mir-598 microRNA precursor family: an 80-nucleotide sequence from Pteropus alecto. Lineage of the source: Eukaryota > Euteleostomi > Amniota > Chiroptera > Pteropus. Rfam links the family to the GO terms RISC complex and miRNA-mediated post-transcriptional gene silencing.

[Rfam]
RNA sequence: GCGGAUGCUAGCGGUGACGGCGGUGGUGCAAUCUGGAAAUGGGGAGCUACGUCACUGUUGUCAUCGUCAUCAUCGUCAUC
Numbered sequence: 001g002c003g004g005a006u007g008c009u010a011g012c013g014g015u016g017a018c019g020g021c022g023g024u025g026g027u028g029c030a031a032u033c034u035g036g037a038a039a040u041g042g043g044g045a046g047c048u049a050c051g052u053c054a055c056u057g058u059u060g061u062c063a064u065c066g067u068c069a070u071c072a073u074c075g076u077c078a079u080c
Stems, first nucleotide, its partner, number of pairs: 001077001004074004009069001011067007021060008029051001031048001033046001
Dot-bracket structure: (..((((.(.(((((((...(((((((((.(.(............).)..).))))))))))))))).).))))..)...